This 179-nucleotide sequence from Vagococcus lutrae belongs to the Rfam family "Lysine riboswitch aptamer".
NCBI's taxonomy places the organism under Bacteria, Bacillati, Bacillota, Bacilli, Vagococcus lutrae.
It scores 88 bits against the family's covariance model.

RNA sequence: UGAUGAGGUAGAGGUCGCGAUGAUUAGGAAUCUUAAAAAAGUUCUGAGGGAACGUUUGGAUUUUAAGAGGAGGGAAAGUCGCCGAAAUGAAUGUUAGCCUCACUAACAUUUGUUGGGACAACAGUUGAUAGCUGUUGGACUGUCUCGAUUUGUGAAAGUCGAGUUGCGCUAUUUUUGUC
Numbered sequence: 001u002g003a004u005g006a007g008g009u010a011g012a013g014g015u016c017g018c019g020a021u022g023a024u025u026a027g028g029a030a031u032c033u034u035a036a037a038a039a040a041g042u043u044c045u046g047a048g049g050g051a052a053c054g055u056u057u058g059g060a061u062u063u064u065a066a067g068a069g070g071a072g073g074g075a076a077a078g079u080c081g082c083c084g085a086a087a088u089g090a091a092u093g094u095u096a097g098c099c100u101c102a103c104u105a106a107c108a109u110u111u112g113u114u115g116g117g118a119c120a121a122c123a124g125u126u127g128a129u130a131g132c133u134g135u136u137g138g139a140c141u142g143u144c145u146c147g148a149u150u151u152g153u154g155a156a157a158g159u160c161g162a163g164u165u166g167c168g169c170u171a172u173u174u175u176u177g178u179c
Base pairs, nucleotide, nucleotide: 006174007173008172009171010170011169017082018081019080020079021078024075031068032067033066034065035064036063037062038061086114087113088112089111090110091109092108093107094106095105096104097103115141116140119137120136121135122134123133124132125131144163145162146161147160148159149158